[Rfam]
RNA sequence: ACAAGGUCACCGCCGAAUCGACGUGCCUUCCGCCGUCGAACCGGGGAACCAGGUUUUCUUUGGGGUGAAUCCCCGCCGAUGGCACGUGCGCGUGUCACGCCGGGGUAGGGCUACUUCCUGGCCCGAAUCCGUCAGCUAACCCGGUAGGCGGCACGAAGGAAAGGC
Numbered sequence: 001a002c003a004a005g006g007u008c009a010c011c012g013c014c015g016a017a018u019c020g021a022c023g024u025g026c027c028u029u030c031c032g033c034c035g036u037c038g039a040a041c042c043g044g045g046g047a048a049c050c051a052g053g054u055u056u057u058c059u060u061u062g063g064g065g066u067g068a069a070u071c072c073c074c075g076c077c078g079a080u081g082g083c084a085c086g087u088g089c090g091c092g093u094g095u096c097a098c099g100c101c102g103g104g105g106u107a108g109g110g111c112u113a114c115u116u117c118c119u120g121g122c123c124c125g126a127a128u129c130c131g132u133c134a135g136c137u138a139a140c141c142c143g144g145u146a147g148g149c150g151g152c153a154c155g156a157a158g159g160a161a162a163g164g165c
Base pairs, nucleotide, nucleotide: 011150012149013148014147018039019038020037021036022035023034040145041144042143043142044141045140050062051061063130064129065128071105072104073103074102108124109123110122111121
Dot-bracket structure: ..........((((...((((((..........))))))((((((....((.........))(((.....((((...........................))))..((((.........))))...))).........)))))).))))...............
The record is a 165-nucleotide sequence from Nakamurella flavida, which matches "c-di-AMP riboswitch aptamer (ydaO/yuaA leader)" in Rfam. The match comes from Rfam's covariance-model search (90 bits).